[Rfam]
RNA sequence: AAUGCAAGCCGUUCUAUCGCUGCGAACUCGUUCGGAGAGGAAAGUCCGGGCAACACAGAGCAUCUCGCUUCCUAACGGGAAGAAGUUUAGGAUUGAAAGCCUGAAUUAUGGAAAGUGCCACAGAAAGCAUACCGCCGAUGGCCAUUAUGGAUCAGGUAAGGUUGAAAACGUGAGGUAAGAGCUCACGAUUGUUCCGGGAGACCGGAAUACUUGUAAACCCCGGGAGUUGAAAGACCAAAUAGGCUAACGCAUGUAGGGCUGCUCGUCCGAUGUUAGUGGGUAGGUCGUUAGAGGCAACUGGCAACAGUUGCACUGGAUUAAUGAUAGAAGUUCAAUGUUUUGAAUACAGAACCCGGCUUACAGGCUUGCAUUUUUU
Numbered sequence: 001a002a003u004g005c006a007a008g009c010c011g012u013u014c015u016a017u018c019g020c021u022g023c024g025a026a027c028u029c030g031u032u033c034g035g036a037g038a039g040g041a042a043a044g045u046c047c048g049g050g051c052a053a054c055a056c057a058g059a060g061c062a063u064c065u066c067g068c069u070u071c072c073u074a075a076c077g078g079g080a081a082g083a084a085g086u087u088u089a090g091g092a093u094u095g096a097a098a099g100c101c102u103g104a105a106u107u108a109u110g111g112a113a114a115g116u117g118c119c120a121c122a123g124a125a126a127g128c129a130u131a132c133c134g135c136c137g138a139u140g141g142c143c144a145u146u147a148u149g150g151a152u153c154a155g156g157u158a159a160g161g162u163u164g165a166a167a168a169c170g171u172g173a174g175g176u177a178a179g180a181g182c183u184c185a186c187g188a189u190u191g192u193u194c195c196g197g198g199a200g201a202c203c204g205g206a207a208u209a210c211u212u213g214u215a216a217a218c219c220c221c222g223g224g225a226g227u228u229g230a231a232a233g234a235c236c237a238a239a240u241a242g243g244c245u246a247a248c249g250c251a252u253g254u255a256g257g258g259c260u261g262c263u264c265g266u267c268c269g270a271u272g273u274u275a276g277u278g279g280g281u282a283g284g285u286c287g288u289u290a291g292a293g294g295c296a297a298c299u300g301g302c303a304a305c306a307g308u309u310g311c312a313c314u315g316g317a318u319u320a321a322u323g324a325u326a327g328a329a330g331u332u333c334a335a336u337g338u339u340u341u342g343a344a345u346a347c348a349g350a351a352c353c354c355g356g357c358u359u360a361c362a363g364g365c366u367u368g369c370a371u372u373u374u375u376u
Stems, first nucleotide, its partner, number of pairs: 001372010011361001012329007020037002023034004042359003046356005051229004058264004063225005068082005083109001084107008110220002115218002117214002132161002134157003139154003143150001169187006190209008233286004243277006256268004294311007

About this RNA
Bacterial RNase P class A: a 376-nucleotide RNA from Pedobacter sp. The literature on the family includes a 2013 paper in RNA Biol by Beauregard et al., "Identification and characterization of small RNAs in Yersinia pestis".